[Rfam]
RNA sequence: GGAUGUGAGGGCAAUCUGGCUGUGAUAGCUGUCACCCCAUCGAUCACCAGGGUUGAUUUGGCUGAUCUGGCUGCUUAGGCAGGUGUCCCCUUCCUCCCUCACCACUCCAUGUGCAUCCCUCUUGAAGCUGCACACUCAGUUAAAGAGAAUGACCACCCCCAAUAGAGGAGGACCGUUCUUUGGUCAAAGGUAUACAAGUAGCUGUGCUCUCCUGCUAGAACCUCCAAACAAGCUCUCAAGGUCCAUUGUAUGAGAUGGCAGGAUAGUCAAGCUUUCAAAACUCCUGACACAUACAAAUGAGGAGCUGCAAGUGGCAGUCUGUCUUUCUUU
Numbered sequence: 001g002g003a004u005g006u007g008a009g010g011g012c013a014a015u016c017u018g019g020c021u022g023u024g025a026u027a028g029c030u031g032u033c034a035c036c037c038c039a040u041c042g043a044u045c046a047c048c049a050g051g052g053u054u055g056a057u058u059u060g061g062c063u064g065a066u067c068u069g070g071c072u073g074c075u076u077a078g079g080c081a082g083g084u085g086u087c088c089c090c091u092u093c094c095u096c097c098c099u100c101a102c103c104a105c106u107c108c109a110u111g112u113g114c115a116u117c118c119c120u121c122u123u124g125a126a127g128c129u130g131c132a133c134a135c136u137c138a139g140u141u142a143a144a145g146a147g148a149a150u151g152a153c154c155a156c157c158c159c160c161a162a163u164a165g166a167g168g169a170g171g172a173c174c175g176u177u178c179u180u181u182g183g184u185c186a187a188a189g190g191u192a193u194a195c196a197a198g199u200a201g202c203u204g205u206g207c208u209c210u211c212c213u214g215c216u217a218g219a220a221c222c223u224c225c226a227a228a229c230a231a232g233c234u235c236u237c238a239a240g241g242u243c244c245a246u247u248g249u250a251u252g253a254g255a256u257g258g259c260a261g262g263a264u265a266g267u268c269a270a271g272c273u274u275u276c277a278a279a280a281c282u283c284c285u286g287a288c289a290c291a292u293a294c295a296a297a298u299g300a301g302g303a304g305c306u307g308c309a310a311g312u313g314g315c316a317g318u319c320u321g322u323c324u325u326u327c328u329u330u
Stems, first nucleotide, its partner, number of pairs: 001108003005102007014092001018090002024087004029082005036073001037070003042067004047061002116171002118168004122139004127135001140162002147158001201272003207266002210263006222254003228249004295330003299325004304318005
RNA: 7SK RNA